Description: Shown here is a 181-nucleotide RNA from Pseudomonas jinjuensis, a member of the family "Pseudomonas sRNA P1". Pairs were carried over by alignment from the consensus structure, which was predicted with RNAalifold. This small RNA (sRNA) was computationally identified in the genome of the opportunistic pathogen Pseudomonas aeruginosa and its expression verified by northern blot analysis. There appears to be two related copies of P1 sRNA in the P.aeruginosa PA01 genome and both copies appear to be located upstream of predicted glutamine synthetase genes. This sRNA appears to be conserved amongst several Pseudomonas species. The match comes from Rfam's covariance-model search (111 bits). For this family Rfam cites "Identification of 17 Pseudomonas aeruginosa sRNAs and prediction of sRNA-encoding genes in 10 diverse pathogens using the bioinformatic tool sRNAPredict2" (Livny et al., Nucleic Acids Res, 2006).
RNA sequence: ACACCCGUAUUUGUAUGUGUUAUGGGUUGCGAUGGAGCUUAGCUUUGUUCAAUUUUUUACACAAUAGCUAUGUAAAAAAUCAAACACGACCCACUGAACACCCUCCCAUCCAGGCAGAUCGGAGUCACUGAAAUGGCCUGAAAUGCCCCAAAAACGGCCACCUCGCACCAGACGGAGGCGC
Numbered sequence: 001a002c003a004c005c006c007g008u009a010u011u012u013g014u015a016u017g018u019g020u021u022a023u024g025g026g027u028u029g030c031g032a033u034g035g036a037g038c039u040u041a042g043c044u045u046u047g048u049u050c051a052a053u054u055u056u057u058u059a060c061a062c063a064a065u066a067g068c069u070a071u072g073u074a075a076a077a078a079a080u081c082a083a084a085c086a087c088g089a090c091c092c093a094c095u096g097a098a099c100a101c102c103c104u105c106c107c108a109u110c111c112a113g114g115c116a117g118a119u120c121g122g123a124g125u126c127a128c129u130g131a132a133a134u135g136g137c138c139u140g141a142a143a144u145g146c147c148c149c150a151a152a153a154a155c156g157g158c159c160a161c162c163u164c165g166c167a168c169c170a171g172a173c174g175g176a177g178g179c180g181c
Stems, first nucleotide, its partner, number of pairs: 024103004035094001037092001042090001044088001045086001047085003053079008164180003